Record summary:
This 69-nucleotide RNA belongs to the Rfam family "DUF3800-IX RNA". From the family's description: Actinobacteria, Firmicutes (1 example), Nitrospirae, Proteobacteria, Verrucomicrobia (1 example).

RNA sequence: AACCUGUAUUCUGAACUGUCACCGGACGGUGGCGUGGCUAGGACAUCUAGCAUAGGAACGUGGUUGGGA
Numbered sequence: 001a002a003c004c005u006g007u008a009u010u011c012u013g014a015a016c017u018g019u020c021a022c023c024g025g026a027c028g029g030u031g032g033c034g035u036g037g038c039u040a041g042g043a044c045a046u047c048u049a050g051c052a053u054a055g056g057a058a059c060g061u062g063g064u065u066g067g068g069a
Base pairs, nucleotide, nucleotide: 001065002064003063004062006061007060009058010057011056012055017034018033019032020031021030022029023028037051038050039049040048

Rfam classes the family as a small RNA.